[Rfam]
RNA sequence: UAGCUGGGUGUUGGUGACCCGAUGGGUAUGGCUAUCACUCACGCGCUGGCCUCUGGCAUGGGCGGAAUGCGAACCACUGGAGAUCUGGUGGCUCGUAUGC
Numbered sequence: 001u002a003g004c005u006g007g008g009u010g011u012u013g014g015u016g017a018c019c020c021g022a023u024g025g026g027u028a029u030g031g032c033u034a035u036c037a038c039u040c041a042c043g044c045g046c047u048g049g050c051c052u053c054u055g056g057c058a059u060g061g062g063c064g065g066a067a068u069g070c071g072a073a074c075c076a077c078u079g080g081a082g083a084u085c086u087g088g089u090g091g092c093u094c095g096u097a098u099g100c
Stems, first nucleotide, its partner, number of pairs: 007038001010035002013032001015030002017027003074091004079086002

Description:
The record is a 100-nucleotide sequence from Syntrophaceticus schinkii, which matches "Pyrrolysine insertion sequence mtbB" in Rfam. Its family is annotated with pyrrolysine incorporation in the Gene Ontology.